A member of the RNA family "Small nucleolar RNA snR80" from Stachybotrys chlorohalonatus, 150 nucleotides long. The family has 6 seed sequences and 447 matches in Rfam 15.1.

RNA sequence: UCCCCCUUGACUACACUCUGAAAUUUACCCAUCUCUCCCAUGGUAUAUUUCAAUUUUUGUGCAAGGAAGAUCAAGCCUACUUAAAGACUCUAUACUCACCGCUUCAUCCUAUUCCUCGUGGGUGUGGCGGUCCAUCAAUUCAGUCUACAC
Number, nucleotide and partner (000 for none) at each position: 001u000002c000003c000004c000005c000006c000007u064008u063009g062010a000011c000012u000013a000014c000015a000016c000017u000018c000019u052020g051021a050022a049023a048024u047025u000026u045027a044028c043029c042030c000031a000032u000033c000034u000035c000036u000037c000038c000039c000040a000041u000042g029043g028044u027045a026046u000047a024048u023049u022050u021051c020052a019053a000054u000055u000056u000057u000058u000059g000060u000061g000062c009063a008064a007065g000066g000067a000068a000069g000070a000071u000072c000073a000074a000075g000076c000077c000078u000079a000080c000081u000082u000083a000084a000085a000086g145087a144088c143089u142090c000091u000092a000093u000094a000095c000096u000097c000098a000099c130100c129101g128102c127103u000104u000105c124106a123107u122108c121109c120110u000111a000112u000113u000114c000115c000116u000117c000118g000119u000120g109121g108122g107123u106124g105125u000126g000127g102128c101129g100130g099131u000132c000133c000134a000135u000136c000137a000138a000139u000140u000141c000142a089143g088144u087145c086146u000147a000148c000149a000150c000
Its Rfam clan is "SNORA28 clan". It is annotated as an H/ACA-box small nucleolar RNA. Rfam links the family to the GO terms RNA processing and nucleolus. Lineage of the source: Eukaryota > Ascomycota > Sordariomycetes > Stachybotryaceae > Stachybotrys chlorohalonatus. It scores 40 bits against the family's covariance model. The family's consensus secondary structure was predicted with WAR.